[Rfam]
RNA sequence: AGAAUUGUUGGCUUUCUCUUCCCGGUUCUUCCCGGAAUCGGGAAAAGCUGGGUUGAGAGAGCAGAAACAAACAAAU
Numbered sequence: 001a002g003a004a005u006u007g008u009u010g011g012c013u014u015u016c017u018c019u020u021c022c023c024g025g026u027u028c029u030u031c032c033c034g035g036a037a038u039c040g041g042g043a044a045a046a047g048c049u050g051g052g053u054u055g056a057g058a059g060a061g062c063a064g065a066a067a068c069a070a071a072c073a074a075a076u
Stems, first nucleotide, its partner, number of pairs: 014059005021052005029044006
RNA: mir-320 microRNA precursor family